Rfam assigns this 199-nucleotide RNA sequence to the family "RAGATH-7 RNA". By type it is a small RNA.

RNA sequence: ACUAUACCGCUUUAUUAUGCACAAAUAAAGUUAAAGAUUGUAUAGUAAUCCACGUGGUAGAGGCAUAAGUUAAUGGUUUACUUAUGGUGCAACUCUUUAAAACCAGCUCUAAAGCAAGUAUAAGAGAUUAAUAAGCUACACCUAUGAUAGGCUUAAUUAGGUUCUUGACAGUCUGACACUAACUGAACAAUAAGUGUUA
Dot-bracket structure: (((((((.(.(((((.........)))))........).)))))))............((((.((((((...........))))))......))))..........((((....[[[[....)))).............(((((.............))))).]]]]......(((((((............)))))))
Numbered sequence: 001a002c003u004a005u006a007c008c009g010c011u012u013u014a015u016u017a018u019g020c021a022c023a024a025a026u027a028a029a030g031u032u033a034a035a036g037a038u039u040g041u042a043u044a045g046u047a048a049u050c051c052a053c054g055u056g057g058u059a060g061a062g063g064c065a066u067a068a069g070u071u072a073a074u075g076g077u078u079u080a081c082u083u084a085u086g087g088u089g090c091a092a093c094u095c096u097u098u099a100a101a102a103c104c105a106g107c108u109c110u111a112a113a114g115c116a117a118g119u120a121u122a123a124g125a126g127a128u129u130a131a132u133a134a135g136c137u138a139c140a141c142c143u144a145u146g147a148u149a150g151g152c153u154u155a156a157u158u159a160g161g162u163u164c165u166u167g168a169c170a171g172u173c174u175g176a177c178a179c180u181a182a183c184u185g186a187a188c189a190a191u192a193a194g195u196g197u198u199a
Stems, first nucleotide, its partner, number of pairs: 001046007009038001011029005059096004064086006107126004115167004140162005174199007